[Rfam]
A member of the RNA family "SAM riboswitch aptamer (S box leader)" from Chryseolinea serpens, 126 nucleotides long. Rfam's curators write: The SAM riboswitch is found upstream of a number of genes which code for proteins involved in methionine or cysteine biosynthesis in Gram-positive bacteria. A search with the family's covariance model found it, with a score of 62 bits.
RNA sequence: UGCUUAUCCAGAAAGACUGAGGGAACGGGCCCGAAGAAGUCUUAGCAUCCUAUUCCGAAAUCGAAACCGGAAUGUUGUGCUAAAUCCCAUUCCAUCCGCCAACUGGCGGUUGGGAAAAGAUAAGUA
Numbered sequence: 001u002g003c004u005u006a007u008c009c010a011g012a013a014a015g016a017c018u019g020a021g022g023g024a025a026c027g028g029g030c031c032c033g034a035a036g037a038a039g040u041c042u043u044a045g046c047a048u049c050c051u052a053u054u055c056c057g058a059a060a061u062c063g064a065a066a067c068c069g070g071a072a073u074g075u076u077g078u079g080c081u082a083a084a085u086c087c088c089a090u091u092c093c094a095u096c097c098g099c100c101a102a103c104u105g106g107c108g109g110u111u112g113g114g115a116a117a118a119g120a121u122a123a124g125u126a
Stems, first nucleotide, its partner, number of pairs: 001126008013043005021032003027088003044081004049077001052073006085118001090115005